[Rfam]
RNA sequence: CCCACGUGCAUUGCUGCUGCAUUGUGCGUGUGUGGCGGGUGCAGUGCCUCAGCAGUGCAGCCCGG
Numbered sequence: 001c002c003c004a005c006g007u008g009c010a011u012u013g014c015u016g017c018u019g020c021a022u023u024g025u026g027c028g029u030g031u032g033u034g035g036c037g038g039g040u041g042c043a044g045u046g047c048c049u050c051a052g053c054a055g056u057g058c059a060g061c062c063c064g065g
Base pairs, nucleotide, nucleotide: 001065002064006061007059008058009057010056011055012054013053014052015051016050019047021045022044023043024042025041026040027039